[Rfam]
The family of this 115-nucleotide RNA sequence from Actinacidiphila oryziradicis is "Guanidine-I riboswitch aptamer". The match comes from Rfam's covariance-model search (72 bits).
RNA sequence: GUGAGGCGCACCUAGGGUUCCGCCGCUGCAGGCAAUGCAACGGGUUUUCUGGUCCGAGAGGUGCAGGCGCGGACUCAGUGUUCGCGUUCCACGGCGGGAGAAAAGCCCGGGAGAC
Numbered sequence: 001g002u003g004a005g006g007c008g009c010a011c012c013u014a015g016g017g018u019u020c021c022g023c024c025g026c027u028g029c030a031g032g033c034a035a036u037g038c039a040a041c042g043g044g045u046u047u048u049c050u051g052g053u054c055c056g057a058g059a060g061g062u063g064c065a066g067g068c069g070c071g072g073a074c075u076c077a078g079u080g081u082u083c084g085c086g087u088u089c090c091a092c093g094g095c096g097g098g099a100g101a102a103a104a105g106c107c108c109g110g111g112a113g114a115c
Stems, first nucleotide, its partner, number of pairs: 008064005015055002020052002022049001023043003027039004066088008090110001092113001096108003